[Rfam]
RNA sequence: UCCAGAGUAGGAAAUCGUGCGUUAAGUGUCCGUCAGACGGGGAGUUGCUGUCGGGACGAAAAGCGAGAACGAUCGCUUGCGGUACGGUUUCCGCAUCCCGCUGAA
Numbered sequence: 001u002c003c004a005g006a007g008u009a010g011g012a013a014a015u016c017g018u019g020c021g022u023u024a025a026g027u028g029u030c031c032g033u034c035a036g037a038c039g040g041g042g043a044g045u046u047g048c049u050g051u052c053g054g055g056a057c058g059a060a061a062a063g064c065g066a067g068a069a070c071g072a073u074c075g076c077u078u079g080c081g082g083u084a085c086g087g088u089u090u091c092c093g094c095a096u097c098c099c100g101c102u103g104a105a
Stems, first nucleotide, its partner, number of pairs: 001105001003103003010092010020081003026057002029055004034050003040098003044094001061078006
RNA: THF (Tetrahydrofolate) riboswitch aptamer
Organism: Ruminococcus sp. OM06-36AC